[Rfam]
RNA sequence: AAACUAAGCAUUGCACCCAGAGUCUGCCUCUCAGACAUUGUACCUGGAGCUCCUUGCGAAUACAUCUGUACAAAU
Numbered sequence: 001a002a003a004c005u006a007a008g009c010a011u012u013g014c015a016c017c018c019a020g021a022g023u024c025u026g027c028c029u030c031u032c033a034g035a036c037a038u039u040g041u042a043c044c045u046g047g048a049g050c051u052c053c054u055u056g057c058g059a060a061u062a063c064a065u066c067u068g069u070a071c072a073a074a075u
Base pairs, nucleotide, nucleotide: 007051008050009049017047018046019045020044022036023035024034025033026032

Annotation
A member of the RNA family "U1A polyadenylation inhibition element (PIE)" from Polypterus senegalus, 75 nucleotides long. From the family's description: This family represents the U1A polyadenylation inhibition element (PIE). The base pairs follow the family's consensus structure, which is taken from published work. A search with the family's covariance model found it, with a score of 58 bits. Rfam 15.1 lists 510 matches to the family in 331 species.